[Rfam]
RNA sequence: AAAACUUUUAAAUUAGUCCAGAGAGGCUAGUAAGGUACAUAGUACAAGUACGUAAGUACGAGUACAGGGAUAAGUAUGCCGUGAUUGGAUGAAACCCAACCUUGCUGCGCCUGAGAGGCAGUGAGGUUUUUUUAUU
Numbered sequence: 001a002a003a004a005c006u007u008u009u010a011a012a013u014u015a016g017u018c019c020a021g022a023g024a025g026g027c028u029a030g031u032a033a034g035g036u037a038c039a040u041a042g043u044a045c046a047a048g049u050a051c052g053u054a055a056g057u058a059c060g061a062g063u064a065c066a067g068g069g070a071u072a073a074g075u076a077u078g079c080c081g082u083g084a085u086u087g088g089a090u091g092a093a094a095c096c097c098a099a100c101c102u103u104g105c106u107g108c109g110c111c112u113g114a115g116a117g118g119c120a121g122u123g124a125g126g127u128u129u130u131u132u133u134a135u136u
Base pairs, nucleotide, nucleotide: 004036005035006034007033008032013030014029015028016027017026018025038069040067042065043064044063045062048059049058050057051056098128099127100126101125102124103123104122105121106120107119108118
RNA: PyrR binding site